[Rfam]
RNA: Small nucleolar RNA SNORD35
Nucleotides: 084
Base pairs, nucleotide, nucleotide: 001079002078003077004076
Number, partner (000 for none) and nucleotide at each position: 001079u002078g003077c004076a005000g006000a007000u008000g009000a010000u011000g012000u013000u014000u015000u016000u017000c018000u019000c020000a021000c022000g023000a024000u025000g026000g027000u028000c029000u030000u031000c032000c033000a034000a035000g036000c037000c038000u039000g040000c041000a042000a043000g044000g045000u046000u047000c048000u049000g050000a051000c052000g053000a054000c055000a056000g057000u058000g059000c060000c061000u062000u063000u064000u065000g066000g067000c068000a069000a070000c071000a072000c073000u074000g075000a076004u077003g078002c079001a080000a081000a082000c083000u084000u